[Rfam]
Nucleotides: 099
Stems, first nucleotide, its partner, number of pairs: 016089007024081007032073004037068001039067001041065002044062003
Number, partner (000 for none) and nucleotide at each position: 001000u002000a003000u004000u005000c006000c007000c008000g009000g010000c011000u012000g013000g014000a015000u016089u017088g018087g019086a020085c021084c022083u023000u024081u025080a026079c027078u028077g029076g030075u031000u032073u033072u034071c035070a036000c037068c038000u039067c040000g041065g042064u043000u044062a045061u046060a047000c048000u049000u050000c051000g052000a053000c054000u055000a056000u057000g058000a059000u060046u061045a062044u063000c064042a065041c066000c067039g068037g069000u070035u071034g072033a073032a074000c075030a076029u077028c078027g079026g080025u081024g082000c083022a084021g085020g086019u087018c088017c089016a090000a091000u092000c093000c094000a095000g096000c097000u098000c099000u

The family of this 99-nucleotide RNA sequence from Caenorhabditis latens is "mir-36 microRNA precursor family". For this family Rfam cites "Patterns of flanking sequence conservation and a characteristic upstream motif for microRNA gene identification" (Ohler et al., RNA, 2004). The base pairs follow the family's consensus structure, which was predicted with WAR. Taxonomically the source falls in Caenorhabditis (Eukaryota, Bilateria, Chromadorea, Rhabditina).